[Rfam]
RNA sequence: ACACAUCCCGAAGGGGCUACCUCCUCCCAGCCCCCAAGGACCCCGACGAGGCACCCUCCUCCCAGCCUCCUAGGAAAAAAGACGCCCACCGGUACCUCCUCCCGCCGGUGGGCGUGUUU
Numbered sequence: 001a002c003a004c005a006u007c008c009c010g011a012a013g014g015g016g017c018u019a020c021c022u023c024c025u026c027c028c029a030g031c032c033c034c035c036a037a038g039g040a041c042c043c044c045g046a047c048g049a050g051g052c053a054c055c056c057u058c059c060u061c062c063c064a065g066c067c068u069c070c071u072a073g074g075a076a077a078a079a080a081g082a083c084g085c086c087c088a089c090c091g092g093u094a095c096c097u098c099c100u101c102c103c104g105c106c107g108g109u110g111g112g113c114g115u116g117u118u119u
Base pairs, nucleotide, nucleotide: 007039008038013034014033015032016031017030043074044073046071048069049068050067051066052065083114084113085112086111087110088109089108090107091106092105093104